A member of the RNA family "Streptomyces RNA 3202" from Streptomyces luteolifulvus, 92 nucleotides long. The pairing is the family consensus, mapped onto this sequence. A search with the family's covariance model found it, with a score of 69 bits. By type it is a small RNA. The organism belongs to Streptomyces, within Bacteria. A reference for the family is Vockenhuber et al. (2011), "Deep sequencing-based identification of small non-coding RNAs in Streptomyces coelicolor", RNA Biol.
RNA sequence: CCACGUCCCGACGCACUCCCCCCGGCGCCGGGACUCACCCCCAGCCGGGCUCCGGCGCCCCACCCCCCUGGGCGCCGGGGUCCGGCUCUUUC
Numbered sequence: 001c002c003a004c005g006u007c008c009c010g011a012c013g014c015a016c017u018c019c020c021c022c023c024g025g026c027g028c029c030g031g032g033a034c035u036c037a038c039c040c041c042c043a044g045c046c047g048g049g050c051u052c053c054g055g056c057g058c059c060c061c062a063c064c065c066c067c068c069u070g071g072g073c074g075c076c077g078g079g080g081u082c083c084g085g086c087u088c089u090u091u092c
Base pairs, nucleotide, nucleotide: 005034006033007032008031009030010029012027013026014025043087044086045085046084047083048082049081050080051079053077054076055075056074057073058072059071060070